[Rfam]
RNA: Ribosomal protein L13 leader
Organism: Falsibacillus pallidus
RNA sequence: GGUAUGUAUUUAACCCCACGGUGAGCCCCGGAAGACUUAUUCGUGAUUAAAAUAAAUACAGC
Numbered sequence: 001g002g003u004a005u006g007u008a009u010u011u012a013a014c015c016c017c018a019c020g021g022u023g024a025g026c027c028c029c030g031g032a033a034g035a036c037u038u039a040u041u042c043g044u045g046a047u048u049a050a051a052a053u054a055a056a057u058a059c060a061g062c
Stems, first nucleotide, its partner, number of pairs: 007058006017045003020041006